[Rfam]
RNA sequence: CGGGGGAUCCCAAGCCAGGGAAUUCGGCAAAUUGGCCCCGUAAGUUCGCGAGAAGGGGUGCCUGCUCUACGAAAGAGCAGGUCGCAGAGACUAAGGGGGGCCGACUGUUUAAUAAAAACAUAGCCAACCGCAAGUCCAAAAGGAUGAGUACGGUUGGUGAAUCCUGCCCAGUAGCGGCUUGUCAAGCGAGGAUACAACUUCGUGAAGCGCCGCUAGACGGCGGGGGUAACUAUAACCCUCUUAAGGUAACGAAGUGCCUUGCCGCUGAAUUGGCGGCCUGCAUGAACGGAUCAACGAGCUCCCCACUGUCCCGGUUUGGGUCCCGGUGAACCUACAGUCUGGCGCAGAGACCAGAAA
Numbered sequence: 001c002g003g004g005g006g007a008u009c010c011c012a013a014g015c016c017a018g019g020g021a022a023u024u025c026g027g028c029a030a031a032u033u034g035g036c037c038c039c040g041u042a043a044g045u046u047c048g049c050g051a052g053a054a055g056g057g058g059u060g061c062c063u064g065c066u067c068u069a070c071g072a073a074a075g076a077g078c079a080g081g082u083c084g085c086a087g088a089g090a091c092u093a094a095g096g097g098g099g100g101c102c103g104a105c106u107g108u109u110u111a112a113u114a115a116a117a118a119c120a121u122a123g124c125c126a127a128c129c130g131c132a133a134g135u136c137c138a139a140a141a142g143g144a145u146g147a148g149u150a151c152g153g154u155u156g157g158u159g160a161a162u163c164c165u166g167c168c169c170a171g172u173a174g175c176g177g178c179u180u181g182u183c184a185a186g187c188g189a190g191g192a193u194a195c196a197a198c199u200u201c202g203u204g205a206a207g208c209g210c211c212g213c214u215a216g217a218c219g220g221c222g223g224g225g226g227u228a229a230c231u232a233u234a235a236c237c238c239u240c241u242u243a244a245g246g247u248a249a250c251g252a253a254g255u256g257c258c259u260u261g262c263c264g265c266u267g268a269a270u271u272g273g274c275g276g277c278c279u280g281c282a283u284g285a286a287c288g289g290a291u292c293a294a295c296g297a298g299c300u301c302c303c304c305a306c307u308g309u310c311c312c313g314g315u316u317u318g319g320g321u322c323c324c325g326g327u328g329a330a331c332c333u334a335c336a337g338u339c340u341g342g343c344g345c346a347g348a349g350a351c352c353a354g355a356a357a
Stems, first nucleotide, its partner, number of pairs: 001325004009320008018311003035059005044049001060082009083087001095304007102296002106120003123158008131148001134145004161291004166221003171218002173214005180209003187202005222240006241245001261277006338355005
Dot-bracket structure: ((((....((((((((.(((..............(((((....(....).....)))))(((((((((.....)))))))))(...).......(((((((((..(((.........)))..(((((((((..((((....))))..)..))))))))..((((.(((..(((((((..(((....(((((......)))))....))))))))..)))))((((((.......))))))(...)...............((((((.....))))))..........))))...)).)))))))....))).)))))))).))))............(((((........)))))..
This 357-nucleotide part of an RNA from candidate division MSBL1 archaeon SCGC-AAA382A13 belongs to the Rfam family "Archaeal large subunit ribosomal RNA".
It scores 2792 bits against the family's covariance model.
The family's consensus secondary structure is taken from published work.
Rfam links the family to the GO terms structural constituent of ribosome and ribosome.